[Rfam]
RNA sequence: UCUGCGUGAAAGACAUGGGUAGUGAGAUGUCCUCGCGCACCUGCGUCUCACUACCUUGUCUUUCAUGCGGCG
Numbered sequence: 001u002c003u004g005c006g007u008g009a010a011a012g013a014c015a016u017g018g019g020u021a022g023u024g025a026g027a028u029g030u031c032c033u034c035g036c037g038c039a040c041c042u043g044c045g046u047c048u049c050a051c052u053a054c055c056u057u058g059u060c061u062u063u064c065a066u067g068c069g070g071c072g
Stems, first nucleotide, its partner, number of pairs: 008064008017056003021052009
RNA: mir-71 microRNA precursor family
Organism: Cephus cinctus